[Rfam]
RNA sequence: AACAGUUUGUCCCGCGUCCCGCGGUGUUUUAAAAAAGUCCCGAUUUUUUAAAAAUCGGGACUUUUUUAAAAUGUCGCGGGACGCGGGACAAACUGUUAA
Numbered sequence: 001a002a003c004a005g006u007u008u009g010u011c012c013c014g015c016g017u018c019c020c021g022c023g024g025u026g027u028u029u030u031a032a033a034a035a036a037g038u039c040c041c042g043a044u045u046u047u048u049u050a051a052a053a054a055u056c057g058g059g060a061c062u063u064u065u066u067u068a069a070a071a072u073g074u075c076g077c078g079g080g081a082c083g084c085g086g087g088a089c090a091a092a093c094u095g096u097u098a099a
Base pairs, nucleotide, nucleotide: 001097002096003095004094005093006092007091008090009089010088011087012086013085014084015083016082017081018080019079020078021077022076023075024074025073026072027071028070029069030068031067032066033065034064035063036062037061038060039059
Dot-bracket structure: (((((((((((((((((((((((((((((((((((((((...................)))))))))))))))))))))))))))))))))))))))..
The family of this 99-nucleotide sequence from Pipistrellus kuhlii is "mir-9261 microRNA precursor family". It scores 88 bits against the family's covariance model.